[Rfam]
RNA sequence: AACCAUUGAUGAAGUGGCAUCAAUGAAGGACCAAGCGGGGUCGAUAAG
Numbered sequence: 001a002a003c004c005a006u007u008g009a010u011g012a013a014g015u016g017g018c019a020u021c022a023a024u025g026a027a028g029g030a031c032c033a034a035g036c037g038g039g040g041u042c043g044a045u046a047a048g
Stems, first nucleotide, its partner, number of pairs: 004025008029042004
The record is a 48-nucleotide RNA sequence, which matches "gut-2 RNA" in Rfam. Rfam classes the family as a small RNA.